[Rfam]
RNA sequence: GGGCUUGUGGGGUAGCUAGGAUAUCCUAAUGGCCUUCGAAGCCGAGGACCCGGGUUCAAAUCCCGGCAAGCCCG
Number, nucleotide and partner (000 for none) at each position: 001g073002g072003g071004c070005u069006u068007g067008u000009g000010g027011g026012g025013u000014a000015g000016c000017u000018a000019g000020g000021a000022u000023a000024u000025c012026c011027u010028a000029a000030u044031g043032g042033c041034c000035u000036u000037c000038g000039a000040a000041g033042c032043c031044g030045a000046g000047g000048a000049c000050c066051c065052g064053g063054g062055u000056u000057c000058a000059a000060a000061u000062c054063c053064c052065g051066g050067c007068a006069a005070g004071c003072c002073c001074g000